[Rfam]
RNA: Ruegeria cis2 sRNA
RNA sequence: UUCGAGUUGCGGGGCGAAUAGUUGAUGAAGGCGAAUCCGCGCGUCUGGUCGAUGAUGUGAAACAGCGGGUUCCAGGCGAACAUGUGCAGCAUGAACAGCGGCAGGGUGUUGGCGACGAACAUCUUGCCCGAGGCCAGCAUGUUGAUGCGCUG
Numbered sequence: 001u002u003c004g005a006g007u008u009g010c011g012g013g014g015c016g017a018a019u020a021g022u023u024g025a026u027g028a029a030g031g032c033g034a035a036u037c038c039g040c041g042c043g044u045c046u047g048g049u050c051g052a053u054g055a056u057g058u059g060a061a062a063c064a065g066c067g068g069g070u071u072c073c074a075g076g077c078g079a080a081c082a083u084g085u086g087c088a089g090c091a092u093g094a095a096c097a098g099c100g101g102c103a104g105g106g107u108g109u110u111g112g113c114g115a116c117g118a119a120c121a122u123c124u125u126g127c128c129c130g131a132g133g134c135c136a137g138c139a140u141g142u143u144g145a146u147g148c149g150c151u152g
Stems, first nucleotide, its partner, number of pairs: 002034003007029002013023002038054002040051002063152005069081004087144007099130003102126006109118003